[Rfam]
RNA: Small nucleolar RNA sR51
Organism: Thermococcus kodakarensis
RNA sequence: GGCGAUGACGAACCUCACGAUAGCUGAAGGGUGAUGAGGGGCAUACUGGCCGAGC
Numbered sequence: 001g002g003c004g005a006u007g008a009c010g011a012a013c014c015u016c017a018c019g020a021u022a023g024c025u026g027a028a029g030g031g032u033g034a035u036g037a038g039g040g041g042c043a044u045a046c047u048g049g050c051c052g053a054g055c
Stems, first nucleotide, its partner, number of pairs: 001050001003048001008044001010042001015037003023032003